About this RNA: Shown here is an 86-nucleotide RNA from Falsibacillus pallidus, a member of the family "c-di-GMP-I-GGC riboswitch aptamer". Pairs were carried over by alignment from the consensus structure, which is taken from published work.
Nucleotides: 086
Base pairs, nucleotide, nucleotide: 003083004082011036012035016031017030018029019028020027021026034072040078041077042076044075045074046073047070048069049068
Number, partner (000 for none) and nucleotide at each position: 001000c002000u003083c004082g005000a006000u007000a008000a009000a010000g011036g012035c013000a014000a015000a016031c017030u018029c019028a020027u021026u022000g023000a024000a025000a026021a027020g028019u029018g030017a031016g032000g033000a034072c035012g036011c037000a038000a039000a040078g041077c042076c043000a044075c045074g046073g047070g048069c049068c050000u051000a052000a053000c054000g055000u056000u057000g058000g059000a060000a061000a062000g063000a064000c065000a066000a067000u068049g069048g070047c071000a072034g073046c074045c075044g076042g077041g078040c079000c080000g081000c082004c083003g084000a085000a086000a